[Rfam]
RNA sequence: GAAUUUGAUGUUUAACGCUCGUCCCCGGACGAGCCUUACGGAAG
Numbered sequence: 001g002a003a004u005u006u007g008a009u010g011u012u013u014a015a016c017g018c019u020c021g022u023c024c025c026c027g028g029a030c031g032a033g034c035c036u037u038a039c040g041g042a043a044g
Base pairs, nucleotide, nucleotide: 017034018033019032020031021030022029023028
The family of this 44-nucleotide RNA sequence from Corchorus olitorius is "nuoG RNA".